[Rfam]
RNA sequence: AUAGCCUGAUUGAUGGCUAUGCAGUUUUAGUAGGCCCCGAUUAAUCUUCUGCUCCGCCAAGAAAAGAAAGAUUAUCGGGGUUUCGUUUU
Numbered sequence: 001a002u003a004g005c006c007u008g009a010u011u012g013a014u015g016g017c018u019a020u021g022c023a024g025u026u027u028u029a030g031u032a033g034g035c036c037c038c039g040a041u042u043a044a045u046c047u048u049c050u051g052c053u054c055c056g057c058c059a060a061g062a063a064a065a066g067a068a069a070g071a072u073u074a075u076c077g078g079g080g081u082u083u084c085g086u087u088u089u
Base pairs, nucleotide, nucleotide: 001020002019003018004017005016029088030087032083033082034081035080036079037078038077039076040075042074043073044072045071046070047069048068
RNA: CopA-like RNA